Shown here is an 80-nucleotide RNA sequence, a member of the family "RAGATH-12 RNA".
Rfam classes the family as a small RNA.
For this family Rfam cites "New classes of self-cleaving ribozymes revealed by comparative genomics analysis" (Weinberg et al., Nat Chem Biol, 2015).
The base pairs follow the family's consensus structure, which is taken from published work.
RNA sequence: UAGUAACACUUAUAGGAACUGUCUGGAGUGCUCACGAAAGUGAGAAUAUGUGCAUUAAAUAAAAUCCUAGCACAAAGGUA
Numbered sequence: 001u002a003g004u005a006a007c008a009c010u011u012a013u014a015g016g017a018a019c020u021g022u023c024u025g026g027a028g029u030g031c032u033c034a035c036g037a038a039a040g041u042g043a044g045a046a047u048a049u050g051u052g053c054a055u056u057a058a059a060u061a062a063a064a065u066c067c068u069a070g071c072a073c074a075a076a077g078g079u080a
Stems, first nucleotide, its partner, number of pairs: 031044005049074005